[Rfam]
RNA sequence: AUCUUCCUUUUAUUGGGGUUGUGCUACUAUCCAAUGAAAGCUUAGUGAGGGCAGUACUGUUAAUGCCUAAACAACACACUCGCAUUGACUAGAACUCUGUUUACCUGGGUGCAAUUUUUUGGAAAA
Numbered sequence: 001a002u003c004u005u006c007c008u009u010u011u012a013u014u015g016g017g018g019u020u021g022u023g024c025u026a027c028u029a030u031c032c033a034a035u036g037a038a039a040g041c042u043u044a045g046u047g048a049g050g051g052c053a054g055u056a057c058u059g060u061u062a063a064u065g066c067c068u069a070a071a072c073a074a075c076a077c078a079c080u081c082g083c084a085u086u087g088a089c090u091a092g093a094a095c096u097c098u099g100u101u102u103a104c105c106u107g108g109g110u111g112c113a114a115u116u117u118u119u120u121g122g123a124a125a126a
Base pairs, nucleotide, nucleotide: 006018007017008016009015021060022059023058026055027054028053030051031050032049038046082112083111084110085109086108090103091102092101094100095099
RNA: U4atac minor spliceosomal RNA
Organism: Myotis myotis